[Rfam]
Shown here is a 259-nucleotide sequence from Thermosinus carboxydivorans, a member of the family "raiA RNA".

RNA sequence: UUUGCUUAGGUCUGUGGUUGAAAAUCGAUGCCAGUCGCAGGCGAAACGAUCCACGUAAGGGGCGUUAAAGCGUCCUGAUCAUGGUGCGGCUUAGAUGUAAGUCCUGCCGGCCGUGUGGCCGAUGGUACGGUAGAUAAUACGGGGUGCUGUCAUCAGUUGGUUGCCGGCCGAGAGGAGUAGUAGUGAGGGGACACAAGCGUCUAGUAGCGAACCUUCCAGCAGGCGGGUGUGGGGGCAAAGACCAGGUCGGCUAAGCAAG
Numbered sequence: 001u002u003u004g005c006u007u008a009g010g011u012c013u014g015u016g017g018u019u020g021a022a023a024a025u026c027g028a029u030g031c032c033a034g035u036c037g038c039a040g041g042c043g044a045a046a047c048g049a050u051c052c053a054c055g056u057a058a059g060g061g062g063c064g065u066u067a068a069a070g071c072g073u074c075c076u077g078a079u080c081a082u083g084g085u086g087c088g089g090c091u092u093a094g095a096u097g098u099a100a101g102u103c104c105u106g107c108c109g110g111c112c113g114u115g116u117g118g119c120c121g122a123u124g125g126u127a128c129g130g131u132a133g134a135u136a137a138u139a140c141g142g143g144g145u146g147c148u149g150u151c152a153u154c155a156g157u158u159g160g161u162u163g164c165c166g167g168c169c170g171a172g173a174g175g176a177g178u179a180g181u182a183g184u185g186a187g188g189g190g191a192c193a194c195a196a197g198c199g200u201c202u203a204g205u206a207g208c209g210a211a212c213c214u215u216c217c218a219g220c221a222g223g224c225g226g227g228u229g230u231g232g233g234g235g236c237a238a239a240g241a242c243c244a245g246g247u248c249g250g251c252u253a254a255g256c257a258a259g
Stems, first nucleotide, its partner, number of pairs: 001259009012250003015244005028230003031041001033091007050084002055079001058076004082237001103223005108170005174216004183208002190201003